RNA sequence: CAAUGAUAAUGGCAAAUCCACUCGAAAGAUGGAGACGCAAAGCCGCGGGUCUAAAGCAAUUACGCCAUGACAGCCGGGCUGCCGUG
Dot-bracket structure: ...........((...((((.((....))))))...))..((((.((((((....((......))...)))..)))))))......

Description:
c-di-GMP-I riboswitch aptamer: an 86-nucleotide RNA from Pelotomaculum thermopropionicum. NCBI's taxonomy places the organism under Bacteria, Bacillati, Bacillota, Eubacteriales, Pelotomaculum thermopropionicum.